SAM riboswitch aptamer (S box leader): a 113-nucleotide RNA from Anaerosolibacter carboniphilus. About the family: The SAM riboswitch is found upstream of a number of genes which code for proteins involved in methionine or cysteine biosynthesis in Gram-positive bacteria. The SAM riboswitch acts at the level of transcription termination control. The predicted structure consists of a complex stem-loop region followed by a single stem loop terminator region. An alternative and mutually exclusive form involves bases in the 3' segment of helix 1 with those in the 5' region of helix 5 to form a structure termed the anti-terminator form. This entry represents the conserved core of the complex structure involving helices 1-4. Its family is annotated with regulation of gene expression in the Gene Ontology. The base pairs follow the family's consensus structure, which is taken from published work.

[Rfam]
RNA sequence: CUCUUAUCCAGAGAGGUGGAGGGACUGGCCCUAUGAAACCCGGCAACCGGCUUUUUUUAUAAAGCAACGGUGCCAAUUCCUGCGGUAUAUGUAUAUAUAUUGGCAGAUGAGAG
Numbered sequence: 001c002u003c004u005u006a007u008c009c010a011g012a013g014a015g016g017u018g019g020a021g022g023g024a025c026u027g028g029c030c031c032u033a034u035g036a037a038a039c040c041c042g043g044c045a046a047c048c049g050g051c052u053u054u055u056u057u058u059a060u061a062a063a064g065c066a067a068c069g070g071u072g073c074c075a076a077u078u079c080c081u082g083c084g085g086u087a088u089a090u091g092u093a094u095a096u097a098u099a100u101u102g103g104c105a106g107a108u109g110a111g112a113g
Stems, first nucleotide, its partner, number of pairs: 001113008013041001015040003021031003025082001027080002042074004047070002050065003078105001083102006